The record is a 118-nucleotide RNA sequence from Thermanaerosceptrum fracticalcis, which matches "Molybdenum/Tungsten riboswitch aptamer (Moco RNA motif)" in Rfam. Rfam 15.1 lists 1,248 matches to the family in 836 species. It scores 72 bits against the family's covariance model. NCBI's taxonomy places the organism under Bacteria, Bacillati, Bacillota, Clostridia, Thermanaerosceptrum.
RNA sequence: AAUAAAAGAUAACUCCGAACUCACAAUACCUAAGGGAAACUAUGGUAUUUGAGUCAAUGGGUACCAGGAGAAAUUCUGCUGCCUCCCGUGUUUGGAAAGGAGAUUUGCUUCAUAGUGA
Numbered sequence: 001a002a003u004a005a006a007a008g009a010u011a012a013c014u015c016c017g018a019a020c021u022c023a024c025a026a027u028a029c030c031u032a033a034g035g036g037a038a039a040c041u042a043u044g045g046u047a048u049u050u051g052a053g054u055c056a057a058u059g060g061g062u063a064c065c066a067g068g069a070g071a072a073a074u075u076c077u078g079c080u081g082c083c084u085c086c087c088g089u090g091u092u093u094g095g096a097a098a099g100g101a102g103a104u105u106u107g108c109u110u111c112a113u114a115g116u117g118a
Stems, first nucleotide, its partner, number of pairs: 003112001006109001011104001013102004019054005026048005034041002059084005065078005085095002